The family of this 435-nucleotide part of an RNA from Saccharophagus degradans is "Bacterial large subunit ribosomal RNA".
RNA sequence: CUCCCCGAAAACUAUUUAGGUAGUGCGUCAUGUCUCACCCACGGGGGUAGAGCACUGUUUGGGCUAGGGGGUCAUCCCGACUUACCAACCCCAUGCAAACUCCGAAUACCGUGGAGUGCAAUCAUGGCAGACAGACUGCGGGUGCUAACGUCCGUAGUCAAGAGGGCAACAACCCAGACCGCCAGCUAAGGUCCCAAAUAUCAGUUAAGUGGGAAACGAUGUGGGAAGGCUUAGACAGCUAGGAGGUUGGCUUAGAAGCAGCCACCCUUUAAAGAAAGCGUAAUAGCUCACUAGUCGAGUCGGCCUGCGCGGAAGAUUUAACGGGGCUCAAACUGAUAACCGAAGCUGCGGAUACUUUCGAGUAUGGUAGGGGAGCGUUCUGUAAGCCUGUGAAGGUGAACUGAGAAGUUUGCUGGAGGUAUCAGAAGUGCGAAU
Number, nucleotide and partner (000 for none) at each position: 001c375002u374003c373004c372005c371006c370007g000008a000009a000010a000011a024012c023013u022014a021015u020016u000017u000018a000019g000020g015021u014022a013023g012024u011025g000026c130027g128028u127029c126030a125031u124032g123033u000034c000035u121036c118037a117038c116039c114040c113041a112042c111043g110044g109045g000046g000047g000048u000049a000050g103051a101052g100053c000054a000055c000056u097057g096058u095059u000060u093061g092062g091063g090064c000065u000066a000067g086068g085069g083070g082071g081072u080073c079074a000075u000076c000077c000078c000079g073080a072081c071082u070083u069084a000085c068086c067087a000088a000089c000090c063091c062092c061093a060094u000095g058096c057097a056098a000099a000100c052101u051102c000103c050104g000105a000106a000107u000108a000109c044110c043111g042112u041113g040114g039115a000116g038117u037118g036119c000120a000121a035122u000123c032124a031125u030126g029127g028128c027129a000130g026131a000132c000133a000134g159135a158136c157137u156138g155139c154140g153141g152142g151143u150144g000145c000146u000147a000148a000149c000150g143151u142152c141153c140154g139155u138156a137157g136158u135159c134160a000161a000162g000163a000164g175165g174166g173167c000168a000169a000170c000171a000172a000173c166174c165175c164176a000177g000178a000179c351180c350181g349182c348183c000184a347185g346186c345187u000188a000189a000190g341191g340192u339193c000194c000195c000196a000197a000198a000199u338200a337201u336202c335203a334204g333205u332206u000207a000208a000209g000210u000211g000212g000213g000214a000215a000216a000217c311218g310219a000220u000221g308222u307223g306224g305225g304226a000227a000228g301229g300230c299231u000232u000233a000234g000235a000236c000237a000238g295239c294240u293241a292242g291243g000244a268245g267246g266247u000248u000249g263250g262251c261252u000253u000254a000255g000256a000257a000258g000259c000260a000261g251262c250263c249264a000265c000266c246267c245268u244269u273270u000271a000272a000273a269274g289275a000276a000277a000278g287279c286280g000281u000282a000283a000284u000285a000286g279287c278288u000289c274290a000291c242292u241293a240294g239295u238296c000297g000298a000299g230300u229301c228302g000303g000304c225305c224306u223307g222308c221309g000310c218311g217312g000313a000314a000315g000316a000317u000318u000319u000320a000321a000322c000323g000324g000325g000326g000327c000328u000329c000330a000331a000332a205333c204334u203335g202336a201337u200338a199339a192340c191341c190342g000343a000344a000345g186346c185347u184348g182349c181350g180351g179352a365353u364354a363355c362356u361357u000358u000359c000360g000361a356362g355363u354364a353365u352366g000367g000368u000369a000370g006371g005372g004373g003374a002375g001376c430377g000378u427379u426380c425381u424382g423383u000384a000385a000386g420387c419388c418389u000390g000391u000392g000393a000394a000395g414396g413397u412398g411399a410400a409401c408402u407403g000404a000405g000406a000407a402408g401409u400410u399411u398412g397413c396414u395415g000416g000417a000418g388419g387420u386421a000422u000423c382424a381425g380426a379427a378428g000429u000430g376431c000432g000433a000434a000435u000
The match comes from Rfam's covariance-model search (2876 bits).